[Rfam]
RNA sequence: UUAAAUUACCAGAUGACAACUUCAUCGUUCGGUAGAUAGUUAUGUAGUGAUUAGAGAAAUUAAGUGUAUGUUAAGUACACCACCAUAACUGGGAAGAGAGCUUUAAGCUCUCUUUUCUUUUUUAU
Numbered sequence: 001u002u003a004a005a006u007u008a009c010c011a012g013a014u015g016a017c018a019a020c021u022u023c024a025u026c027g028u029u030c031g032g033u034a035g036a037u038a039g040u041u042a043u044g045u046a047g048u049g050a051u052u053a054g055a056g057a058a059a060u061u062a063a064g065u066g067u068a069u070g071u072u073a074a075g076u077a078c079a080c081c082a083c084c085a086u087a088a089c090u091g092g093g094a095a096g097a098g099a100g101c102u103u104u105a106a107g108c109u110c111u112c113u114u115u116u117c118u119u120u121u122u123u124a125u
Stems, first nucleotide, its partner, number of pairs: 007034004011028001012026005037091006047083003050060003064080006093115010